[Rfam]
Shown here is an 82-nucleotide RNA from Musa balbisiana, a member of the family "Plastid-rpl20 3UTR RNA". The base pairs follow the family's consensus structure, which was predicted with LocARNA. Rfam's curators write: Plastid rpl20 is a non-coding RNA (ncRNA) recognised in plastids. It was found in the three prime untranslated region (3UTR) of rpl20 gene, it presence in the 3UTR region sugest a role in transcript maduration. The literature on the family includes a 2023 paper in Plant Commun by Richter et al., "Retrograde signaling in plants: A critical review focusing on the GUN pathway and beyond". The family has 270 seed sequences and 587 matches in Rfam 15.1.
RNA sequence: ACAGAAUUCCCCGGAGAAGGAACUCCGGGAAAAAGAAUAAAAAUAAAUUAAGAUAGUAAUAGGAAUGAACGAAAUGUUUAAU
Numbered sequence: 001a002c003a004g005a006a007u008u009c010c011c012c013g014g015a016g017a018a019g020g021a022a023c024u025c026c027g028g029g030a031a032a033a034a035g036a037a038u039a040a041a042a043a044u045a046a047a048u049u050a051a052g053a054u055a056g057u058a059a060u061a062g063g064a065a066u067g068a069a070c071g072a073a074a075u076g077u078u079u080a081a082u
Stems, first nucleotide, its partner, number of pairs: 007031002010029007067079004